[Rfam]
Nucleotides: 065
Stems, first nucleotide, its partner, number of pairs: 002063001006058004011053001013052001015050001017048006025041003
Number, partner (000 for none) and nucleotide at each position: 001000u002063c003000u004000a005000a006058g007057g008056g009055g010000a011053a012000a013052c014000u015050c016000g017048c018047u019046g020045u021044c022043u023000g024000c025041g026040u027039g028000u029000g030000u031000g032000a033000u034000g035000a036000c037000g038000u039027c040026a041025u042000g043022a044021g045020a046019c047018a048017g049000u050015g051000u052013g053011u054000c055009c056008u057007c058006c059000c060000u061000c062000u063002g064000a065000g